[Rfam]
RNA sequence: UGUUCCGAGGAGCGUUGCAAGGUCAGCAGACCCCAGGCUCGGAACCGCUUCAUUGCAACGGCGCUCACCCGCA
Numbered sequence: 001u002g003u004u005c006c007g008a009g010g011a012g013c014g015u016u017g018c019a020a021g022g023u024c025a026g027c028a029g030a031c032c033c034c035a036g037g038c039u040c041g042g043a044a045c046c047g048c049u050u051c052a053u054u055g056c057a058a059c060g061g062c063g064c065u066c067a068c069c070c071g072c073a
Stems, first nucleotide, its partner, number of pairs: 002045007021032004